[Rfam]
RNA sequence: ACAAUGAUACUUGCGUUAGCCAUACGUCACAGAAUGGAACGCCCCGCCAUGAGCAUGGAGGGAGGUGCAAUGCCUAUGG
Number, nucleotide and partner (000 for none) at each position: 001a000002c000003a000004a000005u000006g000007a000008u000009a000010c000011u000012u076013g042014c041015g040016u039017u000018a000019g000020c000021c000022a000023u000024a000025c000026g000027u000028c000029a000030c000031a000032g000033a000034a000035u000036g000037g000038a000039a016040c015041g014042c013043c062044c061045c060046g000047c058048c057049a056050u000051g000052a000053g000054c000055a000056u049057g048058g047059a000060g045061g044062g043063a075064g074065g073066u000067g000068c000069a000070a000071u000072g000073c065074c064075u063076a012077u000078g000079g000
A member of the RNA family "pemK RNA", 79 nucleotides long.
The base pairs follow the family's consensus structure, which is taken from published work.